A member of the RNA family "Selenocysteine transfer RNA" from a Bacillota bacterium, 93 nucleotides long. The family's consensus secondary structure is taken from published work. The match comes from Rfam's covariance-model search (77 bits).
RNA sequence: GGGAGUAGAUAGGUUCUGGUGUGCCUUCCGGGCUUCAAACCCGGCAGCGGGCUCUAGACAAGUCCGCGGUGGGUUCGAUUCCCACAUACUCCC
Numbered sequence: 001g002g003g004a005g006u007a008g009a010u011a012g013g014u015u016c017u018g019g020u021g022u023g024c025c026u027u028c029c030g031g032g033c034u035u036c037a038a039a040c041c042c043g044g045c046a047g048c049g050g051g052c053u054c055u056a057g058a059c060a061a062g063u064c065c066g067c068g069g070u071g072g073g074u075u076c077g078a079u080u081c082c083c084a085c086a087u088a089c090u091c092c093c
Stems, first nucleotide, its partner, number of pairs: 001093007008085001011026004016021001028044005047067005070084004

Notes:
Rfam 15.1 lists 4,211 matches to the family in 3,344 species.